A member of the RNA family "tRNA", 75 nucleotides long. Rfam classes the family as a transfer RNA. Rfam links the family to the GO term triplet codon-amino acid adaptor activity.
[Rfam]
RNA sequence: AAGAAAGAAGCAUUAAGUGGUUUGAUGCGGUUGGCUUGAAACCAACAUGUGAGGGUUCGAUUCCUUCCUUUCUUG
Numbered sequence: 001a002a003g004a005a006a007g008a009a010g011c012a013u014u015a016a017g018u019g020g021u022u023u024g025a026u027g028c029g030g031u032u033g034g035c036u037u038g039a040a041a042c043c044a045a046c047a048u049g050u051g052a053g054g055g056u057u058c059g060a061u062u063c064c065u066u067c068c069u070u071u072c073u074u075g
Stems, first nucleotide, its partner, number of pairs: 001074007010028006030046005051067005